The family of this 169-nucleotide RNA sequence from Clostridium tarantellae is "Lysine riboswitch aptamer".
The base pairs follow the family's consensus structure, which is taken from published work.
Lineage of the source: Bacteria > Bacillota > Clostridia > Eubacteriales > Clostridium.
Gene Ontology term of the family: lysine biosynthetic process.
A search with the family's covariance model found it, with a score of 109 bits.
[Rfam]
Nucleotides: 169
Stems, first nucleotide, its partner, number of pairs: 008162004016079009032064006039057001083110009093100002111137002114134008139154006
Number, partner (000 for none) and nucleotide at each position: 001000g002000a003000c004000c005000a006000a007000a008162g009161u010160a011159g012000a013000g014000g015000u016079g017078c018077u019076g020075u021074a022073a023072u024071u025000a026000a027000g028000a029000g030000u031000a032064a033063c034062u035061a036060u037059u038000a039057g040000g041000a042000g043000c044000u045000g046000g047000c048000a049000a050000g051000u052000u053000a054000u055000a056000a057039u058000a059037a060036a061035u062034a063033g064032u065000g066000a067000a068000a069000g070000g071024a072023a073022u074021u075020a076019u077018a078017g079016c080000c081000g082000a083110a084109g085108a086107u087106a088105a089104a090103u091102u092000g093100u094099u095000g096000g097000c098000a099094a100093a101000a102091a103090g104089u105088u106087u107086a108085u109084c110083u111137g112136g113000g114134c115133a116132u117131a118130u119129g120128u121127a122000a123000a124000a125000u126000a127121u128120a129119c130118a131117u132116a133115u134114g135000a136112c137111u138000g139154u140153c141152a142151c143150u144149u145000u146000a147000u148000a149144a150143a151142g152141u153140g154139g155000a156000g157000g158000g159011c160010u161009a162008c163000a164000a165000g166000g167000u168000a169000c